[Rfam]
RNA: Small nucleolar RNA snoR27
RNA sequence: UAUGGAUCUGUGAUUUUAUUUUAAACUGCGUUAUCUAUCUGAAACCUCACUAGAGGAAUUGAGGAUAACAUAGUAUACUGAGAUCCACU
Numbered sequence: 001u002a003u004g005g006a007u008c009u010g011u012g013a014u015u016u017u018a019u020u021u022u023a024a025a026c027u028g029c030g031u032u033a034u035c036u037a038u039c040u041g042a043a044a045c046c047u048c049a050c051u052a053g054a055g056g057a058a059u060u061g062a063g064g065a066u067a068a069c070a071u072a073g074u075a076u077a078c079u080g081a082g083a084u085c086c087a088c089u
Stems, first nucleotide, its partner, number of pairs: 003087005